This 117-nucleotide sequence from Cupriavidus necator belongs to the Rfam family "ALIL pseudoknot".
Gene Ontology term of the family: positive regulation of translational frameshifting.
It is annotated as a cis-regulatory element.
[Rfam]
RNA sequence: UGCGUUUUUCGCCCAGGCGGAGCUCGACCGCCGAUUCAAGUCUUGAGGGACUUCAUCGACGAGUACCGAGGCACCCUCGGGGUCGAGCCGAUCUGCAGGGUGCUGCAGGUCGCCCCG
Numbered sequence: 001u002g003c004g005u006u007u008u009u010c011g012c013c014c015a016g017g018c019g020g021a022g023c024u025c026g027a028c029c030g031c032c033g034a035u036u037c038a039a040g041u042c043u044u045g046a047g048g049g050a051c052u053u054c055a056u057c058g059a060c061g062a063g064u065a066c067c068g069a070g071g072c073a074c075c076c077u078c079g080g081g082g083u084c085g086a087g088c089c090g091a092u093c094u095g096c097a098g099g100g101u102g103c104u105g106c107a108g109g110u111c112g113c114c115c116c117g
Stems, first nucleotide, its partner, number of pairs: 016032005078117005089112002092109007